[Rfam]
RNA sequence: GUUGUUUAGAAGGAGCUCCCCUCAGUCCAAUACAGGGGGCAGAGAAUGGGAUAGAGCUGCCAUCUCAUGCAUUGGGUUAUCCUUAACGUUUUUCUUGCAAAAUGGAAGAGAAAGAUAAUUGUGAAUGUUGAGUUUAGCCCGAUGCAUGGCAUGGGAGCAACUCAUUCCACUUGCUUUGCUCACCCAUUGGACUGAAGGGAGCUCCUGCUUUCAUCAUC
Dot-bracket structure: ............((((((((..(((((((......(....................((.(((...((((....((((((.......................................................))))))....))))...))).)).......................)......)))))))..))))))))..............